RNA sequence: UUCCAGCAUACGCUUAAUCUCCUUAAGGGAGAGCGGGGGAACCAACCUGCGGUAGGCAAGUACCGCAUUUUGAAUUCUUCAGGGGUGAAUUUCGCGGCCUUUGCCAUGAGCAUGGCGCUCGCGAAUAGGGAAACUCUCUUUCCCGAAUCCGUCAGCUAACCUCGCAAGCGUUCAUAGAGAGCGAUC
Numbered sequence: 001u002u003c004c005a006g007c008a009u010a011c012g013c014u015u016a017a018u019c020u021c022c023u024u025a026a027g028g029g030a031g032a033g034c035g036g037g038g039g040a041a042c043c044a045a046c047c048u049g050c051g052g053u054a055g056g057c058a059a060g061u062a063c064c065g066c067a068u069u070u071u072g073a074a075u076u077c078u079u080c081a082g083g084g085g086u087g088a089a090u091u092u093c094g095c096g097g098c099c100u101u102u103g104c105c106a107u108g109a110g111c112a113u114g115g116c117g118c119u120c121g122c123g124a125a126u127a128g129g130g131a132a133a134c135u136c137u138c139u140u141u142c143c144c145g146a147a148u149c150c151g152u153c154a155g156c157u158a159a160c161c162u163c164g165c166a167a168g169c170g171u172u173c174a175u176a177g178a179g180a181g182c183g184a185u186c
Base pairs, nucleotide, nucleotide: 011170012169013168014167018032019031020030033165034164035163036162037161038160043082083150084149085148091125092124093123094122095121096120097119128144129143130142131141